[Rfam]
RNA sequence: CGUAUGGUGCUUGGCAGCAAUAAUGACUGAUCAAGUGGCGAUACGGCCUUAACAGAGGU
Numbered sequence: 001c002g003u004a005u006g007g008u009g010c011u012u013g014g015c016a017g018c019a020a021u022a023a024u025g026a027c028u029g030a031u032c033a034a035g036u037g038g039c040g041a042u043a044c045g046g047c048c049u050u051a052a053c054a055g056a057g058g059u
Stems, first nucleotide, its partner, number of pairs: 001045005007039002011034004015029003
RNA: L31-Gammaproteobacteria ribosomal protein leader